[Rfam]
RNA sequence: AUGGUCUGGGAACCGGCUCCUGUGUCGUUGCACCUGCCGGCGGUGGGCGCAGCACCGAUACCAGGCAGCCCGACCCUGACCUAAAGUGAAGGCCCAGGGCGACGACAGCCCCAGGGUUGACUUUGCAGUAAACAGGUGUGAGCAUUCUAGCAGCCGCUUGAUGGUCAUGUAUUAUACUGCAAACAGGC
Numbered sequence: 001a002u003g004g005u006c007u008g009g010g011a012a013c014c015g016g017c018u019c020c021u022g023u024g025u026c027g028u029u030g031c032a033c034c035u036g037c038c039g040g041c042g043g044u045g046g047g048c049g050c051a052g053c054a055c056c057g058a059u060a061c062c063a064g065g066c067a068g069c070c071c072g073a074c075c076c077u078g079a080c081c082u083a084a085a086g087u088g089a090a091g092g093c094c095c096a097g098g099g100c101g102a103c104g105a106c107a108g109c110c111c112c113a114g115g116g117u118u119g120a121c122u123u124u125g126c127a128g129u130a131a132a133c134a135g136g137u138g139u140g141a142g143c144a145u146u147c148u149a150g151c152a153g154c155c156g157c158u159u160g161a162u163g164g165u166c167a168u169g170u171a172u173u174a175u176a177c178u179g180c181a182a183a184c185a186g187g188c
Stems, first nucleotide, its partner, number of pairs: 003081004008076003015070004019065004024061002027053004033047002093116003097111004122183009132173001134172001139167003143163004149158003
Small Cajal body specific RNA 16: a 188-nucleotide sequence from Ochotona princeps. From the family's description: scaRNAs are a specific class of small nuclear RNAs which localise to the Cajal bodies and guide the modification of RNA polymerase II transcribed spliceosomal RNAs U1, U2, U4, U5 and U12. ACA47 belongs to the H/ACA box class of guide RNAs as it has the predicted hairpin-hinge-hairpin-tail structure, the conserved H/ACA-box motifs and is found associated with GAR1. ACA47 is predicted to guide the pseudouridylation of residue U5 of the U1 spliceosomal snRNA. Rfam links the family to the GO terms RNA processing and nucleolus. Rfam's curators put it in the seed alignment.